The record is an 89-nucleotide sequence from Gracilibacillus kekensis, which matches "c-di-GMP-I riboswitch aptamer" in Rfam. Gene Ontology term of the family: cyclic-di-GMP binding. Clan: c-di-GMP_I riboswitch clan. NCBI's taxonomy places the organism under Bacteria, Bacillota, Bacilli, Bacillaceae, Gracilibacillus.

[Rfam]
Nucleotides: 089
Stems, first nucleotide, its partner, number of pairs: 012037002017032006040083001042081002045079003048074003055068004
Number, partner (000 for none) and nucleotide at each position: 001000u002000a003000c004000c005000c006000c007000g008000u009000u010000u011000g012037g013036c014000a015000a016000a017032c018031u019030u020029a021028u022027c023000g024000a025000a026000a027022g028021g029020u030019a031018a032017g033000g034000g035000c036013g037012c038000a039000a040083a041000a042081c043080c044000a045079c046078a047077g048074g049073u050072c051000u052000a053000a054000a055068a056067c057066a058065u059000u060000g061000a062000a063000a064000a065058a066057u067056g068055u069000u070000a071000u072050g073049a074048c075000g076000g077047c078046u079045g080043g081042g082000c083040u084000g085000c086000u087000a088000u089000g